[Rfam]
Rfam assigns this 141-nucleotide RNA from Gopherus evgoodei to the family "U4 spliceosomal RNA". The family's consensus secondary structure is taken from published work. The family's RNA type in Rfam is spliceosomal small nuclear RNA. The family has 177 seed sequences and 32,178 matches in Rfam 15.1. A search with the family's covariance model found it, with a score of 126 bits.
RNA sequence: AGCUUUGCGCAGUGGCAGUAUCAUAACCAAUGAAGUUAAUCUGAGGUGUGAUUAUUGCUAGUUGAAAACUUUUCCCAAUACCCUGCUGUGUUGAUUUGAAAUAUAAUUAACACUAGCAAUUUUUGAAAGUCUCUUAUGAGA
Numbered sequence: 001a002g003c004u005u006u007g008c009g010c011a012g013u014g015g016c017a018g019u020a021u022c023a024u025a026a027c028c029a030a031u032g033a034a035g036u037u038a039a040u041c042u043g044a045g046g047u048g049u050g051a052u053u054a055u056u057g058c059u060a061g062u063u064g065a066a067a068a069c070u071u072u073u074c075c076c077a078a079u080a081c082c083c084u085g086c087u088g089u090g091u092u093g094a095u096u097u098g099a100a101a102u103a104u105a106a107u108u109a110a111c112a113c114u115a116g117c118a119a120u121u122u123u124u125g126a127a128a129g130u131c132u133c134u135u136a137u138g139a140g141a
Stems, first nucleotide, its partner, number of pairs: 020052005026047003034042002085117003088113009130141004